[Rfam]
RNA sequence: GGGCAAGAUAUGUAAAGUAGGCCUUAUUUUAUGAAAUAAAAUAAAUCCACUUUACUCGGCUAUAUUCGCUGUGAGCUCAAAUCCUAUAUCUUGUCCUUCGGAGUU
Numbered sequence: 001g002g003g004c005a006a007g008a009u010a011u012g013u014a015a016a017g018u019a020g021g022c023c024u025u026a027u028u029u030u031a032u033g034a035a036a037u038a039a040a041a042u043a044a045a046u047c048c049a050c051u052u053u054a055c056u057c058g059g060c061u062a063u064a065u066u067c068g069c070u071g072u073g074a075g076c077u078c079a080a081a082u083c084c085u086a087u088a089u090c091u092u093g094u095c096c097u098u099c100g101g102a103g104u105u
Stems, first nucleotide, its partner, number of pairs: 001096009012055006020048002024044009058085002068076003
The family of this 105-nucleotide RNA sequence from Bacteroidales bacterium Barb4 is "traJ-II RNA".
NCBI's taxonomy places the organism under Bacteria, Pseudomonadati, Bacteroidota, Bacteroidia, Bacteroidales.
Rfam classes the family as a cis-regulatory element.